[Rfam]
RNA sequence: ACUGGUCUGUGAUGAGUUCAUAAAUCUGUGGACAGUUUGGAUGAGAUAUGCGGAUAUGGGACUGAGACCAGUG
Numbered sequence: 001a002c003u004g005g006u007c008u009g010u011g012a013u014g015a016g017u018u019c020a021u022a023a024a025u026c027u028g029u030g031g032a033c034a035g036u037u038u039g040g041a042u043g044a045g046a047u048a049u050g051c052g053g054a055u056a057u058g059g060g061a062c063u064g065a066g067a068c069c070a071g072u073g
Base pairs, nucleotide, nucleotide: 001072002071003070004069005068
RNA: Small nucleolar RNA SNORD99